Shown here is a 98-nucleotide sequence from Ruminococcus sp. CAG:108, a member of the family "THF (Tetrahydrofolate) riboswitch aptamer". Its family is annotated with tetrahydrofolate metabolic process in the Gene Ontology.
[Rfam]
RNA sequence: CACAGAGUAGAAAUUUGUGCGUGAAGUGUUUUGCGGACGGGGAGUUGCCGCAAGAACGAAAGGUUUAUCCUGCGGUACAGAUUUCGCAUCCCGCUGUU
Numbered sequence: 001c002a003c004a005g006a007g008u009a010g011a012a013a014u015u016u017g018u019g020c021g022u023g024a025a026g027u028g029u030u031u032u033g034c035g036g037a038c039g040g041g042g043a044g045u046u047g048c049c050g051c052a053a054g055a056a057c058g059a060a061a062g063g064u065u066u067a068u069c070c071u072g073c074g075g076u077a078c079a080g081a082u083u084u085c086g087c088a089u090c091c092c093g094c095u096g097u098u
Stems, first nucleotide, its partner, number of pairs: 002097004010085010020074003026057002029055008040091003044087001061071003
Record summary: Taxonomically the source falls in Ruminococcus (Bacteria, Bacillati, Bacillota, Clostridia).